[Rfam]
RNA sequence: GUAAGGGUGAUGAAAGAAAUCAUUCGGAUUCCCAAUGAUCUACAUGAUUACUACAACCAGCUACUUCUGACUUGU
Numbered sequence: 001g002u003a004a005g006g007g008u009g010a011u012g013a014a015a016g017a018a019a020u021c022a023u024u025c026g027g028a029u030u031c032c033c034a035a036u037g038a039u040c041u042a043c044a045u046g047a048u049u050a051c052u053a054c055a056a057c058c059a060g061c062u063a064c065u066u067c068u069g070a071c072u073u074g075u
Stems, first nucleotide, its partner, number of pairs: 001075005
The family of this 75-nucleotide RNA from Anisodus acutangulus is "Small nucleolar RNA R12". The match comes from Rfam's covariance-model search (70 bits). The family's RNA type in Rfam is C/D-box small nucleolar RNA. A reference for the family is Chen et al. (2003), "The high diversity of snoRNAs in plants: identification and comparative study of 120 snoRNA genes from Oryza sativa", Nucleic Acids Res.